[Rfam]
RNA sequence: GAACUUGCUUAGCGAUAAGUAACUGAACUAAGAGAAGUCAGCAGAUGUCAUAGUACCAAUCCUCAGGAUUGGGAAGGAC
Numbered sequence: 001g002a003a004c005u006u007g008c009u010u011a012g013c014g015a016u017a018a019g020u021a022a023c024u025g026a027a028c029u030a031a032g033a034g035a036a037g038u039c040a041g042c043a044g045a046u047g048u049c050a051u052a053g054u055a056c057c058a059a060u061c062c063u064c065a066g067g068a069u070u071g072g073g074a075a076g077g078a079c
Base pairs, nucleotide, nucleotide: 002024005022006021007020008019009018010017011016037046038045039044047079048078049077056072057071058070059069060068061067
Dot-bracket structure: .(..(((((((....))))))).)............(((....)))(((......((((((.....))))))....)))
Notes:
Group II catalytic intron D1-D4-1: a 79-nucleotide RNA from Niallia circulans. The family has 237 seed sequences and 2,508 matches in Rfam 15.1. NCBI's taxonomy places the organism under Bacteria, Bacillota, Bacilli, Bacillaceae, Niallia. A search with the family's covariance model found it, with a score of 66 bits.